[Rfam]
Shown here is a 74-nucleotide RNA sequence from Streptococcus sp. zg-36, a member of the family "L17 ribosomal protein downstream element". The organism belongs to Streptococcus, within Bacteria. The family's consensus secondary structure is taken from published work.
RNA sequence: UGAGUGUUAUGAUGGUGGAAUGCAGGAGCAUUCUUAGUCUAGCUCUGGUCUACCGCUGGGUUGAUUCCCAGCGG
Numbered sequence: 001u002g003a004g005u006g007u008u009a010u011g012a013u014g015g016u017g018g019a020a021u022g023c024a025g026g027a028g029c030a031u032u033c034u035u036a037g038u039c040u041a042g043c044u045c046u047g048g049u050c051u052a053c054c055g056c057u058g059g060g061u062u063g064a065u066u067c068c069c070a071g072c073g074g
Stems, first nucleotide, its partner, number of pairs: 002045004011039003017034006053074008